[Rfam]
RNA: TPP riboswitch aptamer (THI element)
RNA sequence: UGUUCACGGCUGGGGUGCCCGUGCGGCCGCUUUGGAAAAAAGGCGGGUGGCGCGGGCUGAGACACACCCAUCGAACCUGAUCCGGGUCAUGCCGGCGAAGGGAGCCGACCGGAACCCGAC
Number, nucleotide and partner (000 for none) at each position: 001u000002g000003u000004u000005c000006a000007c107008g106009g105010c104011u070012g069013g068014g067015g000016u064017g057018c056019c055020c054021g053022u052023g051024c050025g000026g000027c000028c000029g000030c000031u000032u000033u000034g000035g000036a000037a000038a000039a000040a000041a000042g000043g000044c000045g000046g000047g000048u000049g000050g024051c023052g022053c021054g020055g019056g018057c017058u000059g000060a000061g000062a000063c000064a016065c000066a000067c014068c013069c012070a011071u000072c000073g000074a000075a000076c101077c100078u099079g000080a000081u000082c095083c094084g093085g092086g000087u000088c000089a000090u000091g000092c085093c084094g083095g082096c000097g000098a000099a078100g077101g076102g000103a000104g010105c009106c008107g007108a000109c000110c000111g000112g000113a000114a000115c000116c000117c000118g000119a000120c000